RNA sequence: AGCUGCGCCAGACUCCCGGCACGCUGUUCCCCUCUGGAGGUUUUAGCCUCUCAAUUUCAAGGGCCGCGCUCGCGCAGGCCCUUUUUC
Number, nucleotide and partner (000 for none) at each position: 001a025002g024003c023004u000005g022006c000007g020008c019009c018010a000011g000012a000013c000014u000015c000016c000017c000018g009019g008020c007021a000022c005023g003024c002025u001026g000027u000028u000029c000030c000031c000032c000033u000034c000035u000036g051037g050038a049039g048040g047041u046042u000043u000044u000045a000046g041047c040048c039049u038050c037051u036052c000053a000054a000055u000056u000057u000058c000059a000060a082061g081062g080063g079064c078065c077066g075067c074068g073069c000070u000071c000072g000073c068074g067075c066076a000077g065078g064079c063080c062081c061082u060083u000084u000085u000086u000087c000
The family of this 87-nucleotide RNA from Endobacterium cereale is "Alphaproteobacterial ar15". For this family Rfam cites "The Sinorhizobium meliloti RNA chaperone Hfq influences central carbon metabolism and the symbiotic interaction with alfalfa" (Torres-Quesada et al., BMC Microbiol, 2010). The match comes from Rfam's covariance-model search (47 bits). The base pairs follow the family's consensus structure. Taxonomically the source falls in Endobacterium (Bacteria, Alphaproteobacteria, Hyphomicrobiales, Rhizobiaceae).